[Rfam]
RNA sequence: CUGUGUAUGGCACUGGUAGAAUUCACUGUGAGAGCUCACUAUCAGUGAAUUACCAUAGGGCCAUAAACAG
Numbered sequence: 001c002u003g004u005g006u007a008u009g010g011c012a013c014u015g016g017u018a019g020a021a022u023u024c025a026c027u028g029u030g031a032g033a034g035c036u037c038a039c040u041a042u043c044a045g046u047g048a049a050u051u052a053c054c055a056u057a058g059g060g061c062c063a064u065a066a067a068c069a070g
Stems, first nucleotide, its partner, number of pairs: 001070004006065006014055003020051009